[Rfam]
RNA sequence: UUGAAAGCCGCAAGAGAGACCCUAUUGCCCAUGUGAAGACAAGGGCAAGGGGGCGCCGAAGGGGCAAGGUCCGCGAGGCCCGAAUCUCUCAGGCGAAAGGAUUGCGGCAGGACG
Number, nucleotide and partner (000 for none) at each position: 001u000002u000003g000004a000005a000006a000007g108008c107009c106010g105011c104012a103013a102014g000015a000016g000017a000018g000019a000020c053021c052022c051023u050024a000025u000026u000027g000028c000029c000030c000031a000032u000033g000034u000035g000036a000037a000038g000039a000040c000041a000042a000043g000044g000045g000046c000047a000048a000049g000050g023051g022052g021053g020054c000055g094056c093057c092058g090059a089060a000061g000062g088063g087064g086065c000066a000067a000068g081069g080070u000071c000072c000073g000074c000075g000076a000077g000078g000079c000080c069081c068082g000083a000084a000085u000086c064087u063088c062089u059090c058091a000092g057093g056094c055095g000096a000097a000098a000099g000100g000101a000102u013103u012104g011105c010106g009107g008108c007109a000110g000111g000112a000113c000114g000

A member of the RNA family "Glycine riboswitch aptamer" from Aminomonas paucivorans, 114 nucleotides long.
Lineage of the source: Bacteria > Thermotogati > Synergistales > Aminomonas > Aminomonas paucivorans.
Rfam links the family to the GO term glycine biosynthetic process.